[Rfam]
RNA: L4-Archaeoglobi ribosomal protein leades
RNA sequence: CUGACCAGGACGCAUGGGUCGACGUUCGUGCAACGAGCCCCUUCCUCCUGCUGAUGCAGGUGGAUGCGACCAAAAGUCAG
Numbered sequence: 001c002u003g004a005c006c007a008g009g010a011c012g013c014a015u016g017g018g019u020c021g022a023c024g025u026u027c028g029u030g031c032a033a034c035g036a037g038c039c040c041c042u043u044c045c046u047c048c049u050g051c052u053g054a055u056g057c058a059g060g061u062g063g064a065u066g067c068g069a070c071c072a073a074a075a076g077u078c079a080g
Stems, first nucleotide, its partner, number of pairs: 001080005008071002011068003016040003023035004043064003047060005